[Rfam]
RNA sequence: GAUGCUUCAUGACGGGAUGGACUAAAAUGUCUCAUGGAGGCCGGGUCUUUCCCUGAUGUUUUUGCAGC
Dot-bracket structure: (.(((........((((.(((((.....(((.......)))..))))).))))..........))).)
A member of the RNA family "Selenocysteine insertion sequence 1" from Rhinolophus ferrumequinum, 68 nucleotides long. NCBI's taxonomy places the organism under Eukaryota, Opisthokonta, Craniata, Theria, Rhinolophus. Rfam classes the family as a cis-regulatory element. The match comes from Rfam's covariance-model search (39 bits). The family's consensus secondary structure is taken from published work. About the family: The incorporation of selenocysteine into a protein sequence is directed by an in-frame UGA codon (usually a stop codon) within the coding region of the mRNA. Selenoprotein mRNAs contain a conserved secondary structure in the 3' UTR that is required for the distinction of UGA stop from UGA selenocysteine. The selenocysteine insertion sequence (SECIS) is around 60 nt in length and adopts a hairpin structure which is sufficiently well-defined and conserved to act as a computational screen for selenoprotein genes.